[Rfam]
RNA sequence: UGAGUCGGCCGGGCAAUCGCGGCUCCCCGAACCGCCGCGCAUGCGGACAGGCGGGGGUCGAGGAAAGUCCGGACUCCACAGGGCACGGUGGUUGCCAACAGCAACCCGGAGCGAUCCGCGGGAAAGUGCAACAGAGAGUAGACCGCCCGCGCCAUGCGGGUAAGGGUGAAAGGGUGCGGUAAGAGCGCACCGGCAUGCGUGGCGACACGUGUGGCCAGGUAAACCCCACCGGGAGCAAGGCAAGAGCCCCCGCUUUCGAGCGGAGGUCGUCGGACGCGAUGGAGGCUGCCCGCCCAGUCCGAAGGUAGCUGCUCGAGGCCCCCAGCAAUGGGAGGUCCAGAUGGAUGAUUGCCACCUGGCGCGUGCCGGGGACAGAAUCCGGCUUACAGGCCGGCUCAUUCG
Numbered sequence: 001u002g003a004g005u006c007g008g009c010c011g012g013g014c015a016a017u018c019g020c021g022g023c024u025c026c027c028c029g030a031a032c033c034g035c036c037g038c039g040c041a042u043g044c045g046g047a048c049a050g051g052c053g054g055g056g057g058u059c060g061a062g063g064a065a066a067g068u069c070c071g072g073a074c075u076c077c078a079c080a081g082g083g084c085a086c087g088g089u090g091g092u093u094g095c096c097a098a099c100a101g102c103a104a105c106c107c108g109g110a111g112c113g114a115u116c117c118g119c120g121g122g123a124a125a126g127u128g129c130a131a132c133a134g135a136g137a138g139u140a141g142a143c144c145g146c147c148c149g150c151g152c153c154a155u156g157c158g159g160g161u162a163a164g165g166g167u168g169a170a171a172g173g174g175u176g177c178g179g180u181a182a183g184a185g186c187g188c189a190c191c192g193g194c195a196u197g198c199g200u201g202g203c204g205a206c207a208c209g210u211g212u213g214g215c216c217a218g219g220u221a222a223a224c225c226c227c228a229c230c231g232g233g234a235g236c237a238a239g240g241c242a243a244g245a246g247c248c249c250c251c252g253c254u255u256u257c258g259a260g261c262g263g264a265g266g267u268c269g270u271c272g273g274a275c276g277c278g279a280u281g282g283a284g285g286c287u288g289c290c291c292g293c294c295c296a297g298u299c300c301g302a303a304g305g306u307a308g309c310u311g312c313u314c315g316a317g318g319c320c321c322c323c324a325g326c327a328a329u330g331g332g333a334g335g336u337c338c339a340g341a342u343g344g345a346u347g348a349u350u351g352c353c354a355c356c357u358g359g360c361g362c363g364u365g366c367c368g369g370g371g372a373c374a375g376a377a378u379c380c381g382g383c384u385u386a387c388a389g390g391c392c393g394g395c396u397c398a399u400u401c402g
Base pairs, nucleotide, nucleotide: 001398002397003396004395005394006393007392008391009390010389011387012353013352014351015350016349017348018347020060021059022058023057024056025055026054027053065385066384067383069382070381071380072379073378074235075234076233077232081291082290083289084288086231087230088229089228090227091105092104093103094102095101106120107118108117109116110115121226122225126224127223128220129219143165144164145161146160147159148158149157150156151155173191174190175189176188177187178186193215194213195212196211197210198209199208200207201206239310240309241308270302271301272300273299274298275297282295284294285293286292317336319334321332322331323330324329
Bacterial RNase P class A: a 402-nucleotide RNA from Corynebacterium mycetoides. By type it is a ribozyme.